The record is a 161-nucleotide sequence, which matches "U1 spliceosomal RNA" in Rfam.
RNA sequence: AUACUUACCUGGACGGGGUCAAUGGAUGAUCAAUAAGGUCCAUGGCCUAGGGAAGUAACCUCCAUUGCACUUAGGAGGGGUGCUUUCCUAAGGUCUGCCCAAGUGGCAGAGCCUACGUCAUAAUUUGUGGUAGUGGGGGCUUGCGUUCGCGCAGCCCCUUC
Numbered sequence: 001a002u003a004c005u006u007a008c009c010u011g012g013a014c015g016g017g018g019u020c021a022a023u024g025g026a027u028g029a030u031c032a033a034u035a036a037g038g039u040c041c042a043u044g045g046c047c048u049a050g051g052g053a054a055g056u057a058a059c060c061u062c063c064a065u066u067g068c069a070c071u072u073a074g075g076a077g078g079g080g081u082g083c084u085u086u087c088c089u090a091a092g093g094u095c096u097g098c099c100c101a102a103g104u105g106g107c108a109g110a111g112c113c114u115a116c117g118u119c120a121u122a123a124u125u126u127g128u129g130g131u132a133g134u135g136g137g138g139g140c141u142u143g144c145g146u147u148c149g150c151g152c153a154g155c156c157c158c159u160u161c
Base pairs, nucleotide, nucleotide: 012119013118014117015116016048017047018046019045020044021043023042024041025040026039027038049089050088051087053086055083056082057081059079060078061077062075063074091114092113093112094110095109096108098106099105135160136159137158138157139156142153143152144151145150

The base pairs follow the family's consensus structure, which is taken from published work. U1 is a small nuclear RNA (snRNA) component of the spliceosome (involved in pre-mRNA splicing). Its 5' end forms complementary base pairs with the 5' splice junction, thus defining the 5' donor site of an intron. Rfam links the family to the GO terms mRNA 5'-splice site recognition, pre-mRNA 5'-splice site binding and U1 snRNP.